[Rfam]
Nucleotides: 407
Stems, first nucleotide, its partner, number of pairs: 034077002039072002094142004098137008108127002113122002155403006162190009192388003195384006201239004209232003213227002215223002250369006259359005265353004272347009293322006300311004324332003
Number, partner (000 for none) and nucleotide at each position: 001000a002000a003000u004000u005000u006000u007000u008000g009000g010000g011000u012000u013000u014000g015000u016000a017000g018000c019000a020000u021000u022000u023000a024000u025000c026000u027000u028000a029000u030000g031000g032000a033000u034077u035076g036000a037000c038000g039072u040071u041000u042000u043000g044000c045000g046000c047000c048000c049000u050000c051000g052000u053000g054000g055000u056000g057000c058000a059000a060000a061000c062000g063000c064000u065000a066000u067000c068000a069000u070000a071040a072039a073000g074000u075000a076035c077034a078000c079000a080000c081000u082000a083000g084000u085000a086000a087000u088000u089000u090000a091000g092000c093000c094142a095141g096140a097139g098137a099136g100135c101134c102133a103132g104131u105130c106000a107000g108127a109126g110000g111000g112000c113122g114121c115000u116000a117000c118000c119000a120000u121114g122113c123000a124000a125000a126109c127108u128000a129000g130105g131104g132103c133102u134101g135100g136099c137098u138000a139097c140096u141095c142094u143000g144000g145000c146000a147000c148000a149000g150000a151000a152000u153000c154000a155403c156402a157401u158400c159399u160398c161000g162190a163189u164188a165187a166186g167185c168184a169183a170182c171000a172000g173000u174000g175000c176000c177000a178000g179000a180000a181000g182170g183169u184168u185167g186166c187165u188164u189163a190162u191000a192388c193387c194386a195384u196383u197382u198381a199380a200379u201239g202238u203237g204236c205000c206000g207000a208000g209232g210231c211230c212000a213227c214226g215223c216222g217000g218000a219000g220000u221000a222216c223215g224000a225000u226214c227213g228000a229000g230211g231210g232209u233000a234000c235000a236204g237203c238202a239201c240000a241000a242000u243000c244000u245000c246000a247000a248000c249000u250369u251368u252367u253366g254365u255364u256000g257000a258000g259359c260358c261357a262356c263355a264000u265353u266352u267351u268350u269000a270000a271000u272347c273346c274345u275344a276343a277342u278341u279340g280339g281000a282000g283000a284000a285000a286000g287000u288000u289000a290000a291000a292000g293322g294321a295320c296319u297318g298317u299000a300311c301310u302309a303308c304000g305000a306000a307000a308303g309302u310301a311300g312000g313000u314000g315000u316000a317298g318297c319296a320295g321294u322293u323000g324332c325331c326330c327000a328000g329000u330326g331325g332324g333000a334000g335000a336000g337000c338000g339280u340279c341278a342277a343276u344275u345274a346273g347272g348000u349000u350268a351267a352266a353265g354000c355263u356262g357261u358260g359259g360000u361000g362000g363000g364255g365254a366253c367252a368251a369250a370000u371000u372000a373000g374000g375000g376000g377000a378000a379200a380199u381198u382197a383196a384195a385000u386194u387193g388192g389000c390000u391000u392000a393000u394000a395000g396000g397000g398160g399159g400158g401157a402156u403155g404000g405000a406000g407000c
Description
This 407-nucleotide sequence from Deltacoronavirus HNU1-2 belongs to the Rfam family "Deltacoronavirus 3'UTR". Pairs were carried over by alignment from the consensus structure. Clan: Coronavirus 3' UTR. A reference for the family is Yang and Leibowitz (2015), "The structure and functions of coronavirus genomic 3' and 5' ends", Virus Res. Gene Ontology term of the family: viral RNA genome replication. The match comes from Rfam's covariance-model search (341 bits). Rfam describes the family as follows. There are two smaller hairpins and the hypervariable region (HVR) present in the 3' UTR of deltacoronaviruses. The pseudoknot structure which is typical for alpha- and betacoronaviruses has not been predicted in deltacoronaviruses thus far.